[Rfam]
RNA sequence: UCCUGCGUUCGAAAAUGAUUGUGGCAUGGUCUGUGGCCGAGUCAUUAAUAUUGCAGGCAGAGUAACGCAAAUAUGUUUCCCUGUGUUUAUUGGAGUGCCUGGCUCCAUUAAACCCUGUAACUUUUCAACA
Numbered sequence: 001u002c003c004u005g006c007g008u009u010c011g012a013a014a015a016u017g018a019u020u021g022u023g024g025c026a027u028g029g030u031c032u033g034u035g036g037c038c039g040a041g042u043c044a045u046u047a048a049u050a051u052u053g054c055a056g057g058c059a060g061a062g063u064a065a066c067g068c069a070a071a072u073a074u075g076u077u078u079c080c081c082u083g084u085g086u087u088u089a090u091u092g093g094a095g096u097g098c099c100u101g102g103c104u105c106c107a108u109u110a111a112a113c114c115c116u117g118u119a120a121c122u123u124u125u126c127a128a129c130a
Stems, first nucleotide, its partner, number of pairs: 002057006009050001014046007023038003069125003074120001085113005091107005
The family of this 130-nucleotide sequence from Callorhinchus milii is "Small nucleolar RNA SNORA71". The organism belongs to Callorhinchus, within Eukaryota. Gene Ontology terms of the family: RNA processing and nucleolus. The base pairs follow the family's consensus structure, which was predicted with PFOLD. On this family, see Ganot et al., Genes Dev 1997: "The family of box ACA small nucleolar RNAs is defined by an evolutionarily conserved secondary structure and ubiquitous sequence elements essential for RNA accumulation".